[Rfam]
Shown here is an 87-nucleotide RNA sequence from Pan troglodytes, a member of the family "mir-623 microRNA precursor family".
RNA sequence: CAGUAGAAGCGUCCCUUGCAGGGGCUGUUGGGUUGCAUCCUAAGCUGUGCUGGAGCUUCCCGAUGUACUCUGUAGAUGUCUUUGCAC
Numbered sequence: 001c002a003g004u005a006g007a008a009g010c011g012u013c014c015c016u017u018g019c020a021g022g023g024g025c026u027g028u029u030g031g032g033u034u035g036c037a038u039c040c041u042a043a044g045c046u047g048u049g050c051u052g053g054a055g056c057u058u059c060c061c062g063a064u065g066u067a068c069u070c071u072g073u074a075g076a077u078g079u080c081u082u083u084g085c086a087c
Base pairs, nucleotide, nucleotide: 003085004084005083006082007081009079010078011077012076013075017074018073019072020071021070022069023068026065027064028063029062030061031060032059035056036055038054039053040052043051044050045049

The source organism's lineage runs through Eukaryota, Opisthokonta, Sarcopterygii, Tetrapoda and Pan. The family's consensus secondary structure was predicted with RNAalifold.